[Rfam]
RNA sequence: UGCCUCUGAAACAGCCCAUCCCCUGUCGUCACUCUGUCCUGGUGCUUUGUCCCUCCCCAGCACCAGGACAGAGUGACGGCGGGGGAUGGGCUGUUUGUACAUCUGUUU
Dot-bracket structure: ........(((((((.((.((((((((((((((((((((((((((..............)))))))))))))))))))))))))).)).)))))))............
Numbered sequence: 001u002g003c004c005u006c007u008g009a010a011a012c013a014g015c016c017c018a019u020c021c022c023c024u025g026u027c028g029u030c031a032c033u034c035u036g037u038c039c040u041g042g043u044g045c046u047u048u049g050u051c052c053c054u055c056c057c058c059a060g061c062a063c064c065a066g067g068a069c070a071g072a073g074u075g076a077c078g079g080c081g082g083g084g085g086a087u088g089g090g091c092u093g094u095u096u097g098u099a100c101a102u103c104u105g106u107u108u
Stems, first nucleotide, its partner, number of pairs: 009096007017088002020085026
Shown here is a 108-nucleotide sequence from Lipotes vexillifer, a member of the family "mraW RNA". The base pairs follow the family's consensus structure, which is taken from published work. Taxonomically the source falls in Lipotes (Eukaryota, Bilateria, Craniata, Artiodactyla). The family's RNA type in Rfam is cis-regulatory element. The match comes from Rfam's covariance-model search (56 bits).